[Rfam]
RNA sequence: CGACGUGGUGACCCGGGACAUCAAUUACUUAAAGAACCAAGAGAAAUAACCCACCCGACCCACCCCGGCUCUCAACUGACGGGUCUCGGGGGGCUCGUCACCCACACGGGUGAGGUUUACCAACUGAGCUGGAUUUCGCACCGGUUGGCAGGCAUAUGCUCACGCCACCAGACAUCAGACAUAUGUCGGCCCCCGGCCGGGACUCCACAUCCCGAUCGAGGGCCUGACCACCAAGGAAGAAGCAGAACUUCCCG
Numbered sequence: 001c002g003a004c005g006u007g008g009u010g011a012c013c014c015g016g017g018a019c020a021u022c023a024a025u026u027a028c029u030u031a032a033a034g035a036a037c038c039a040a041g042a043g044a045a046a047u048a049a050c051c052c053a054c055c056c057g058a059c060c061c062a063c064c065c066c067g068g069c070u071c072u073c074a075a076c077u078g079a080c081g082g083g084u085c086u087c088g089g090g091g092g093g094c095u096c097g098u099c100a101c102c103c104a105c106a107c108g109g110g111u112g113a114g115g116u117u118u119a120c121c122a123a124c125u126g127a128g129c130u131g132g133a134u135u136u137c138g139c140a141c142c143g144g145u146u147g148g149c150a151g152g153c154a155u156a157u158g159c160u161c162a163c164g165c166c167a168c169c170a171g172a173c174a175u176c177a178g179a180c181a182u183a184u185g186u187c188g189g190c191c192c193c194c195g196g197c198c199g200g201g202a203c204u205c206c207a208c209a210u211c212c213c214g215a216u217c218g219a220g221g222g223c224c225u226g227a228c229c230a231c232c233a234a235g236g237a238a239g240a241a242g243c244a245g246a247a248c249u250u251c252c253c254g
Stems, first nucleotide, its partner, number of pairs: 007232004016086004098113006128163001130162003188224005194218002199213004235252005
RNA: Streptomyces sRNA 4677